[Rfam]
RNA sequence: GGAGACGUAUCGAAGCGGCCAUAACGAGCUUGACUCGAAAUCAAGUUGCCGGGUAACCGGCACGUGGGUUCGAAUCCCACCGUCUCCG
Numbered sequence: 001g002g003a004g005a006c007g008u009a010u011c012g013a014a015g016c017g018g019c020c021a022u023a024a025c026g027a028g029c030u031u032g033a034c035u036c037g038a039a040a041u042c043a044a045g046u047u048g049c050c051g052g053g054u055a056a057c058c059g060g061c062a063c064g065u066g067g068g069u070u071c072g073a074a075u076c077c078c079a080c081c082g083u084c085u086c087c088g
Stems, first nucleotide, its partner, number of pairs: 001087007010027003029045005064080005
The family of this 88-nucleotide RNA from Blautia pseudococcoides is "tRNA".
A reference for the family is Hou (1993), "The tertiary structure of tRNA and the development of the genetic code", Trends Biochem Sci.
The family's RNA type in Rfam is transfer RNA.
The match comes from Rfam's covariance-model search (56 bits).